[Rfam]
RNA sequence: UUGACAGCUCAGAGGUUGCAAGCAGAAGUGUUCACAGUGCAACCCUGUCAGAUUCCACUGAAUCUGUGAAUUCUGCU
Numbered sequence: 001u002u003g004a005c006a007g008c009u010c011a012g013a014g015g016u017u018g019c020a021a022g023c024a025g026a027a028g029u030g031u032u033c034a035c036a037g038u039g040c041a042a043c044c045c046u047g048u049c050a051g052a053u054u055c056c057a058c059u060g061a062a063u064c065u066g067u068g069a070a071u072u073c074u075g076c077u
Stems, first nucleotide, its partner, number of pairs: 014044004021077007028040003049066007
RNA: Mammalian CPEB3 ribozyme
Organism: Crocodylus porosus